[Rfam]
RNA sequence: ACACAUGUUUUCUAGGGUUCCGCAGCUGUCCUGCAGCUGGACUGGUCCGAGAGAAGACACACGAAUGGUUUCGUGCACACGGAGGGAGAAAAGCCCGGGAGAG
Dot-bracket structure: ......((((((..((...(((((((((.....))))))..).)).))....)))))).((((((....))))))..(.[...(((.......))).)..]..
Numbered sequence: 001a002c003a004c005a006u007g008u009u010u011u012c013u014a015g016g017g018u019u020c021c022g023c024a025g026c027u028g029u030c031c032u033g034c035a036g037c038u039g040g041a042c043u044g045g046u047c048c049g050a051g052a053g054a055a056g057a058c059a060c061a062c063g064a065a066u067g068g069u070u071u072c073g074u075g076c077a078c079a080c081g082g083a084g085g086g087a088g089a090a091a092a093g094c095c096c097g098g099g100a101g102a103g
Stems, first nucleotide, its partner, number of pairs: 007058006015048002020045002022042001023039006060075006078098001080101001084096003